[Rfam]
The record is an 84-nucleotide RNA sequence from bacterium 1XD42-54, which matches "ZMP/ZTP riboswitch aptamer (pfl RNA motif)" in Rfam.
RNA sequence: GAAGGUUUUGAUUGCUGACGGAUUUUGUGGAGCACCACAAGGUAAUCAAGAUAAUAGGGCUUGUCGACCGUCUGGACAGCAUUU
Numbered sequence: 001g002a003a004g005g006u007u008u009u010g011a012u013u014g015c016u017g018a019c020g021g022a023u024u025u026u027g028u029g030g031a032g033c034a035c036c037a038c039a040a041g042g043u044a045a046u047c048a049a050g051a052u053a054a055u056a057g058g059g060c061u062u063g064u065c066g067a068c069c070g071u072c073u074g075g076a077c078a079g080c081a082u083u084u
Stems, first nucleotide, its partner, number of pairs: 005052008015042002017072005027038004061079005
Pairs were carried over by alignment from the consensus structure, which is taken from published work.